This 167-nucleotide RNA sequence from Clostridium sp. cel8 belongs to the Rfam family "M-box riboswitch aptamer (ykoK leader)".
Pairs were carried over by alignment from the consensus structure.
Rfam describes the family as follows. M-box riboswitch, also know as ykoK leader is described as a metaloregulatory RNA that sense divalent metals and function as a genetic control element of genes related to divalent metal transport in bacteria.
The family has 159 seed sequences and 1,095 matches in Rfam 15.1.
[Rfam]
RNA sequence: UAGUUAAUAUGUUAGGUGAGGCUCCUAUAUAAAUAUACGCUGCUGCCCGUAAACAUCGAGAGAUGCCAUUUGGGUUGAACAGGUACUACCGAAUCAAGGUUUUACUUAAUGCAGCUGGAUGUAUUCCAAAGUUAUAUAGUGCUAAAACUCGUACAAGUUUUUAUAAG
Numbered sequence: 001u002a003g004u005u006a007a008u009a010u011g012u013u014a015g016g017u018g019a020g021g022c023u024c025c026u027a028u029a030u031a032a033a034u035a036u037a038c039g040c041u042g043c044u045g046c047c048c049g050u051a052a053a054c055a056u057c058g059a060g061a062g063a064u065g066c067c068a069u070u071u072g073g074g075u076u077g078a079a080c081a082g083g084u085a086c087u088a089c090c091g092a093a094u095c096a097a098g099g100u101u102u103u104a105c106u107u108a109a110u111g112c113a114g115c116u117g118g119a120u121g122u123a124u125u126c127c128a129a130a131g132u133u134a135u136a137u138a139g140u141g142c143u144a145a146a147a148c149u150c151g152u153a154c155a156a157g158u159u160u161u162u163a164u165a166a167g
Base pairs, nucleotide, nucleotide: 005163006162007161009159011154012153013097015149016148017147020143021142022141025139026138027137028136029135030134031133032132039115040114041113042112043111045075046074047073048072049071054065055064056063057062082106083105084104085103088100089099090098117127118126119125

Record summary
Lineage of the source: Bacteria > Bacillati > Bacillota > Eubacteriales > Clostridium.